Description:
A member of the RNA family "HNH endonuclease-associated RNA and ORF (HEARO) RNA" from Desulfocicer vacuolatum, 269 nucleotides long. It is annotated as a non-coding RNA gene. Lineage of the source: Bacteria > Thermodesulfobacteriota > Desulfobacterales > Desulfobacteraceae > Desulfocicer vacuolatum.
[Rfam]
Nucleotides: 269
Stems, first nucleotide, its partner, number of pairs: 001106007010031002012028002016023002032043004109255003114133007136249011151187002155180001158176005163265002167261004189232009201223001205219003208215001
Number, partner (000 for none) and nucleotide at each position: 001106g002105u003104a004103a005102a006101c007100u008000a009000c010031c011030c012028c013027u014000a015000c016023c017022c018000u019000a020000a021000a022017g023016g024000g025000a026000u027013a028012g029000c030011g031010g032043c033042u034041u035040u036000u037000u038000a039000a040035a041034a042033a043032g044000c045000c046000g047000u048000a049000a050000u051000g052000u053000u054000u055000u056000a057000g058000a059000g060000u061000g062000g063000u064000a065000g066000c067000u068000u069000u070000u071000a072000a073000g074000a075000a076000a077000u078000c079000u080000u081000c082000g083000g084000a085000u086000u087000u088000u089000g090000a091000g092000a093000a094000a095000g096000u097000u098000u099000g100007a101006g102005u103004u104003u105002a106001c107000c108000a109255g110254a111253c112000u113000c114133a115132g116131g117130u118129a119128g120127a121000a122000g123000a124000a125000a126000u127120u128119c129118u130117a131116c132115c133114u134000a135000c136249g137248a138247u139246a140245g141244a142243u143242a144241g145240g146239u147000u148000a149000u150000g151187a152186c153000a154000c155180a156000a157000a158176u159175g160174a161173u162172u163265g164264c165000c166000g167261c168260c169259c170258c171000a172162g173161a174160u175159c176158a177000g178000c179000a180155u181000c182000g183000a184000a185000u186152g187151u188000c189232g190231c191230u192229u193228g194227u195226a196225u197224u198000u199000a200000a201223a202000a203000a204000a205219g206218g207217u208215u209000g210000a211000g212000g213000g214000a215208a216000g217207a218206c219205c220000c221000a222000g223201u224197g225196a226195u227194a228193u229192a230191a231190g232189c233000u234000u235000u236000g237000a238000a239146g240145c241144c242143u243142a244141u245140u246139u247138a248137u249136c250000u251000u252000u253111g254110u255109c256000g257000a258170g259169g260168g261167g262000a263000a264164g265163u266000c267000g268000g269000a